[Rfam]
RNA sequence: CCAUUUCAUUUUUGAUCACCUAAAAAAGGACUUGGGAAAUCCUUCACCGUUGGGUGUAAACUAUCAAAUUCCGGAAAACCCCUAGAACUUCAAGUACCAAGCUAUGUUUGAAAAACUAUAAGUGGCUGAACUAAUUACUCAGGUAUGGUAACAAGCUUGAAGGCUUCUGAAAAGAACGUGGGCUAUCGCGGAUCUAAGUCAGUAAUAUGUGAAAGUAUUACUGUAAAAGAGCAACGAGUAAAUGGUAGUUGGUGUGGUAAUAAUUUACUACAUUUAAGAUGUACUCUAAUGGGCUUCGAAAGAAGUUA
Numbered sequence: 001c002c003a004u005u006u007c008a009u010u011u012u013u014g015a016u017c018a019c020c021u022a023a024a025a026a027a028g029g030a031c032u033u034g035g036g037a038a039a040u041c042c043u044u045c046a047c048c049g050u051u052g053g054g055u056g057u058a059a060a061c062u063a064u065c066a067a068a069u070u071c072c073g074g075a076a077a078a079c080c081c082c083u084a085g086a087a088c089u090u091c092a093a094g095u096a097c098c099a100a101g102c103u104a105u106g107u108u109u110g111a112a113a114a115a116c117u118a119u120a121a122g123u124g125g126c127u128g129a130a131c132u133a134a135u136u137a138c139u140c141a142g143g144u145a146u147g148g149u150a151a152c153a154a155g156c157u158u159g160a161a162g163g164c165u166u167c168u169g170a171a172a173a174g175a176a177c178g179u180g181g182g183c184u185a186u187c188g189c190g191g192a193u194c195u196a197a198g199u200c201a202g203u204a205a206u207a208u209g210u211g212a213a214a215g216u217a218u219u220a221c222u223g224u225a226a227a228a229g230a231g232c233a234a235c236g237a238g239u240a241a242a243u244g245g246u247a248g249u250u251g252g253u254g255u256g257g258u259a260a261u262a263a264u265u266u267a268c269u270a271c272a273u274u275u276a277a278g279a280u281g282u283a284c285u286c287u288a289a290u291g292g293g294c295u296u297c298g299a300a301a302g303a304a305g306u307u308a
Base pairs, nucleotide, nucleotide: 005030006029007028009026010025011024012023013022034042035041059250060249061248062247063246065244066243070192071191072190073189074187075186080182081181082180193230194229200223201222205218206217207216208215234287236286237285238284239283240282252273253272254271255270256269257268258267259266260265293306294305295304296303297302
RNA: Group I catalytic intron